[Rfam]
RNA sequence: UAAACUUGAAUAAACCAACCGUAGACAGCAGGCGCCGCUUCGGCGGCUUAAUUCCCUGCCGAGGUGUUAUGAUACGACUUCCCGGGUCGAGUUGCGUCCGCAAGGACGCCCGGCCGGCGACGUCCUCAUGCAGCCUUCGUGUCUACGGAGGCUGUUCUCGUUUACACCC
Number, nucleotide and partner (000 for none) at each position: 001u000002a000003a000004a000005c000006u000007u000008g000009a000010a000011u000012a000013a000014a000015c000016c000017a000018a000019c000020c000021g000022u000023a000024g000025a000026c000027a000028g059029c058030a057031g056032g055033c000034g047035c046036c045037g000038c000039u000040u000041c000042g000043g000044c000045g036046g035047c034048u000049u000050a000051a000052u000053u000054c000055c032056c031057u030058g029059c028060c000061g000062a000063g000064g000065u000066g000067u000068u000069a000070u000071g000072a000073u000074a000075c000076g000077a000078c000079u000080u000081c000082c000083c000084g000085g000086g000087u000088c000089g000090a000091g000092u000093u000094g000095c000096g000097u000098c000099c000100g000101c000102a000103a000104g000105g000106a000107c000108g000109c000110c000111c000112g000113g000114c000115c000116g000117g000118c000119g000120a000121c000122g000123u000124c000125c000126u000127c000128a000129u000130g000131c154132a153133g152134c151135c150136u149137u148138c147139g146140u145141g000142u000143c000144u000145a140146c139147g138148g137149a136150g135151g134152c133153u132154g131155u000156u000157c000158u000159c000160g000161u000162u000163u000164a000165c000166a000167c000168c000169c000
The record is a 169-nucleotide RNA sequence from Paenibacillus antri, which matches "Ribosomal protein L10 leader" in Rfam. Its family is annotated with regulation of gene expression in the Gene Ontology. By type it is a cis-regulatory leader. This family is a putative r-protein leader autoregulatory structure found in B. subtilis and other low-GC Gram-positive bacteria.